[Rfam]
Nucleotides: 133
Stems, first nucleotide, its partner, number of pairs: 001057005013047002016044003021039002067126006080114007094105002
Number, partner (000 for none) and nucleotide at each position: 001057g002056c003055a004054u005053c006000u007000g008000g009000u010000u011000c012000u013047u014046u015000c016044c017043c018042a019000c020000u021039c022038c023000u024000u025000g026000c027000g028000g029000u030000a031000c032000c033000g034000u035000g036000c037000u038022g039021g040000a041000u042018u043017g044016g045000a046014g047013a048000c049000a050000c051000a052000g053005g054004a055003u056002g057001c058000a059000a060000c061000a062000g063000g064000a065000g066000a067126g068125c069124a070123g071122a072121g073000g074000a075000a076000a077000u078000c079000c080114a081113g082112a083111c084110a085109a086108g087000c088000u089000c090000c091000c092000u093000u094105u095104c096000c097000c098000c099000g100000c101000a102000g103000u104095g105094g106000g107000a108086c109085u110084u111083g112082u113081c114080u115000c116000u117000a118000c119000g120000c121072c122071u123070u124069u125068g126067c127000a128000a129000c130000a131000u132000u133000u

A member of the RNA family "Small nucleolar RNA SNORA55" from Baryphthengus martii, 133 nucleotides long. Rfam links the family to the GO terms nucleolus and RNA processing. Rfam 15.1 lists 1,476 matches to the family in 616 species.